[Rfam]
RNA sequence: GAAAUGUGCCUUUCAGGCAUCCUCUCCUAAAAACUUUCAGGGCUGGUCUUCGGAUCGGCCCUUUUUUUGUCCGCUU
Numbered sequence: 001g002a003a004a005u006g007u008g009c010c011u012u013u014c015a016g017g018c019a020u021c022c023u024c025u026c027c028u029a030a031a032a033a034c035u036u037u038c039a040g041g042g043c044u045g046g047u048c049u050u051c052g053g054a055u056c057g058g059c060c061c062u063u064u065u066u067u068u069g070u071c072c073g074c075u076u
Base pairs, nucleotide, nucleotide: 008018009017010016011015040061041060042059043058044057045056046055047054048053
Dot-bracket structure: .......((((...)))).....................(((((((((....)))))))))...............

This 76-nucleotide RNA sequence from Sphingobium sp. YG1 belongs to the Rfam family "Makes More Granules Regulator RNA (mmgR)". SuhB later renamed mmgR (makes more granules regulator) was a putative non-coding RNA found multiple times in the Agrobacterium tumefaciens genome and related alpha-proteobacteria. Other non-coding RNAs uncovered in the same analysis include: speF, ybhL, metA, and serC.Several studies inSinorhizobium meliloti showed that suhB element is indeed a non-coding RNA:firstly it was detected on Northern blot and called Sm8RNA, secondly in an RNAseq study referred to as SmelC689.The mutant phenotype's (strain lacking the small RNA) cytoplasm contains higher content of polyhydroxybutyrate (PBH)storage granules than wild type strain. The sRNA is required to limit the PBH intracellular accumulation when the nitrogen-fixing Sinorhizobium meliloti is under condition of surplus carbon in relation to nitrogen. It has been renamed to mmgR. Further study confirmed that mmgR fine-tunes the regulation of PBH storage.Northern blot confirmed the expression of the sRNA in other rhizobia species. MmgR homologues were found in most alpha-proteobacteria. The organism belongs to Sphingobium, within Bacteria.